[Rfam]
RNA sequence: AUUUGAUGAAACUAGUGUAAAACCAAACAAAUCGCAAAAAAAAAAGGUAAUUGAUAAAUAAUCAAUAUGGUAUGGGAAGGUCUGAGCUGCCGAAUAAUCUCUAGGUGGGAAACUUGUUAAAAACAGGUGCAUGGUACCAGAAAUUGAACCUGCAUGUCAGAAGCAUAGAGAUGUUGUGAAAUUUAAUAGAGUGCAACUCAAUUAAAUGCAGCUGAAUGAAAUCUACAUGUGUGGCUGGAAAUCCAUAGUGGCAGUUGAAUUAUAUGAAGUUAGAUACACUGGACAGAGUAGGCCAACUCUGUAACUUAAUUCAGAUUACUCUCAACAAAU
Numbered sequence: 001a002u003u004u005g006a007u008g009a010a011a012c013u014a015g016u017g018u019a020a021a022a023c024c025a026a027a028c029a030a031a032u033c034g035c036a037a038a039a040a041a042a043a044a045a046g047g048u049a050a051u052u053g054a055u056a057a058a059u060a061a062u063c064a065a066u067a068u069g070g071u072a073u074g075g076g077a078a079g080g081u082c083u084g085a086g087c088u089g090c091c092g093a094a095u096a097a098u099c100u101c102u103a104g105g106u107g108g109g110a111a112a113c114u115u116g117u118u119a120a121a122a123a124c125a126g127g128u129g130c131a132u133g134g135u136a137c138c139a140g141a142a143a144u145u146g147a148a149c150c151u152g153c154a155u156g157u158c159a160g161a162a163g164c165a166u167a168g169a170g171a172u173g174u175u176g177u178g179a180a181a182u183u184u185a186a187u188a189g190a191g192u193g194c195a196a197c198u199c200a201a202u203u204a205a206a207u208g209c210a211g212c213u214g215a216a217u218g219a220a221a222u223c224u225a226c227a228u229g230u231g232u233g234g235c236u237g238g239a240a241a242u243c244c245a246u247a248g249u250g251g252c253a254g255u256u257g258a259a260u261u262a263u264a265u266g267a268a269g270u271u272a273g274a275u276a277c278a279c280u281g282g283a284c285a286g287a288g289u290a291g292g293c294c295a296a297c298u299c300u301g302u303a304a305c306u307u308a309a310u311u312c313a314g315a316u317u318a319c320u321c322u323c324a325a326c327a328a329a330u
Base pairs, nucleotide, nucleotide: 001330002329003328004327007324008323009322012282013281014280015279016278017277018276020073022071023070024069082314083313084312085311086310088253089252090251091250098110099109100108101107112128113127114126115125116124117123129249130248131246132245133244134243149234150233283302284301285300286299287298288297289296

Rfam assigns this 330-nucleotide sequence from Tieghemostelium lacteum to the family "Nuclear RNase P".
The match comes from Rfam's covariance-model search (70 bits).
By type it is a ribozyme.
Rfam links the family to the GO terms ribonuclease P activity, ribonuclease P complex and tRNA processing.
A reference for the family is Frank and Pace (1998), "Ribonuclease P: unity and diversity in a tRNA processing ribozyme", Annu Rev Biochem.